A member of the RNA family "mir-994 microRNA precursor family" from Drosophila pseudoobscura, 81 nucleotides long. Its family is annotated with miRNA-mediated post-transcriptional gene silencing and RISC complex in the Gene Ontology. Rfam 15.1 lists 18 matches to the family in 18 species.

[Rfam]
RNA sequence: GAGUUAUCUAAGGAAAUAGUAGCCGUGAUUUAACAUACAAAUCCUUUACAUAUCACAGUUGCUGUUUCUUUUAGAUAGCUC
Dot-bracket structure: (((((((((((((((((((((((.(((((......................))))).))))))))))).))))))))))))
Numbered sequence: 001g002a003g004u005u006a007u008c009u010a011a012g013g014a015a016a017u018a019g020u021a022g023c024c025g026u027g028a029u030u031u032a033a034c035a036u037a038c039a040a041a042u043c044c045u046u047u048a049c050a051u052a053u054c055a056c057a058g059u060u061g062c063u064g065u066u067u068c069u070u071u072u073a074g075a076u077a078g079c080u081c
Stems, first nucleotide, its partner, number of pairs: 001081012013068011025056005